Rfam assigns this 113-nucleotide sequence from Macaca fascicularis to the family "Mitochondrial DNA control region secondary structure A". Lineage of the source: Eukaryota > Metazoa > Sarcopterygii > Mammalia > Macaca. It scores 55 bits against the family's covariance model. Rfam 15.1 lists 795 matches to the family in 62 species. On this family, see Pereira et al., Mol Biol Evol 2008: "Evidence for variable selective pressures at a large secondary structure of the human mitochondrial DNA control region".
RNA sequence: UAUUCUUUUGGACAUGCAUUUUAACUACUAUGUAAGUACUGACCAUCAGCACUGAUACAUUAAUACUUUUAUGUACUUCAUGCAUUACUGCUAGUCCCCAUGAAUAAUAUAUA
Numbered sequence: 001u002a003u004u005c006u007u008u009u010g011g012a013c014a015u016g017c018a019u020u021u022u023a024a025c026u027a028c029u030a031u032g033u034a035a036g037u038a039c040u041g042a043c044c045a046u047c048a049g050c051a052c053u054g055a056u057a058c059a060u061u062a063a064u065a066c067u068u069u070u071a072u073g074u075a076c077u078u079c080a081u082g083c084a085u086u087a088c089u090g091c092u093a094g095u096c097c098c099c100a101u102g103a104a105u106a107a108u109a110u111a112u113a
Base pairs, nucleotide, nucleotide: 006103007102009100010099011098016091017090018089022035024033025032026030036066037065040062041061042060071085072084073083074082075081